[Rfam]
RNA sequence: AAGUCCUUUAAAGACGGUCCUGUGAGGCUGAGAAGGAGACGGAGCUUGUAUGGCAUAAGUAUGCCUACAAAUGGAAUUCGUGUACCCUCUAAGCCCUGGCCUAGAGGGUUUUUUUA
Numbered sequence: 001a002a003g004u005c006c007u008u009u010a011a012a013g014a015c016g017g018u019c020c021u022g023u024g025a026g027g028c029u030g031a032g033a034a035g036g037a038g039a040c041g042g043a044g045c046u047u048g049u050a051u052g053g054c055a056u057a058a059g060u061a062u063g064c065c066u067a068c069a070a071a072u073g074g075a076a077u078u079c080g081u082g083u084a085c086c087c088u089c090u091a092a093g094c095c096c097u098g099g100c101c102u103a104g105a106g107g108g109u110u111u112u113u114u115u116a
Stems, first nucleotide, its partner, number of pairs: 004037006015030005048079001050077002054073003059068003082111001084109008093100002

PyrR binding site: a 116-nucleotide sequence from Bacillus sp. Y1. From the family's description: This family represents the PyrR binding site and terminator structure. This RNA structure is found upstream of a variety of genes involved in pyrimidine biosynthesis and transport. The alignment also includes a portion of the antiterminator structure. On this family, see Bonner et al., Nucleic Acids Res 2001: "Molecular recognition of pyr mRNA by the Bacillus subtilis attenuation regulatory protein PyrR". Rfam classes the family as a cis-regulatory element. A search with the family's covariance model found it, with a score of 57 bits.